[Rfam]
RNA sequence: GUGUCUUGAUGAAAUAGCCAAAUCUGAGCAUCAGAAGACCCUCCUGUCUACUUGAUGCAUGAUCUCUAUAGUUCUGAGA
Numbered sequence: 001g002u003g004u005c006u007u008g009a010u011g012a013a014a015u016a017g018c019c020a021a022a023u024c025u026g027a028g029c030a031u032c033a034g035a036a037g038a039c040c041c042u043c044c045u046g047u048c049u050a051c052u053u054g055a056u057g058c059a060u061g062a063u064c065u066c067u068a069u070a071g072u073u074c075u076g077a078g079a
Base pairs, nucleotide, nucleotide: 028058029057030056031055032054036049037048038047039046
Record summary: Rfam assigns this 79-nucleotide RNA sequence from Diceros bicornis to the family "Small nucleolar RNA U2-19". The match comes from Rfam's covariance-model search (86 bits). A reference for the family is Tycowski et al. (2004), "Guide RNAs with 5' Caps and Novel Box C/D snoRNA-like Domains for Modification of snRNAs in Metazoa", Curr Biol. Pairs were carried over by alignment from the consensus structure, which is taken from published work. The family has 29 seed sequences and 1,147 matches in Rfam 15.1. Its family is annotated with RNA processing and nucleolus in the Gene Ontology.